[Rfam]
Nucleotides: 075
Base pairs, nucleotide, nucleotide: 013046014045015044016043017042018041021075022074023073024072025071027069029039030038050064051063052062053061054060055059
Number, partner (000 for none) and nucleotide at each position: 001000a002000u003000c004000a005000c006000a007000g008000u009000c010000c011000u012000g013046g014045g015044g016043a017042u018041c019000a020000c021075a022074g023073u024072a025071g026000a027069a028000g029039c030038c031000u032000c033000c034000a035000c036000a037000u038030g039029g040000a041018g042017g043016u044015c045014c046013u047000u048000g049000u050064c051063a052062g053061c054060c055059u056000u057000a058000a059055a060054g061053g062052u063051u064050g065000u066000g067000a068000a069027u070000c071025c072024u073023g074022c075021u